[Rfam]
RNA sequence: CUGGCGGCAGCGCUCUUCUGUGAGCGUCAGGCAGAUCAGGCCGCGCCCGUGCUUCGCCAUGAAGUUGAUCGCCUCCGGUGUGACGUGCUCGGCCGCGAGUACCA
Numbered sequence: 001c002u003g004g005c006g007g008c009a010g011c012g013c014u015c016u017u018c019u020g021u022g023a024g025c026g027u028c029a030g031g032c033a034g035a036u037c038a039g040g041c042c043g044c045g046c047c048c049g050u051g052c053u054u055c056g057c058c059a060u061g062a063a064g065u066u067g068a069u070c071g072c073c074u075c076c077g078g079u080g081u082g083a084c085g086u087g088c089u090c091g092g093c094c095g096c097g098a099g100u101a102c103c104a
Base pairs, nucleotide, nucleotide: 003058004057005056006055007054010027011026012025013024014023015022035050036049039047040046041045066104067103069101071096072095075092076091077090078088079087080086

Shown here is a 104-nucleotide sequence from Azoarcus taiwanensis, a member of the family "Vibrio RNA AS9". Identified by direct cloning an parallel sequencing experiments with 5S/tRNA depletion. Confirmed by Northern blot. A search with the family's covariance model found it, with a score of 67 bits. The literature on the family includes a 2009 paper in Nucleic Acids Res by Liu et al., "Experimental discovery of sRNAs in Vibrio cholerae by direct cloning, 5S/tRNA depletion and parallel sequencing".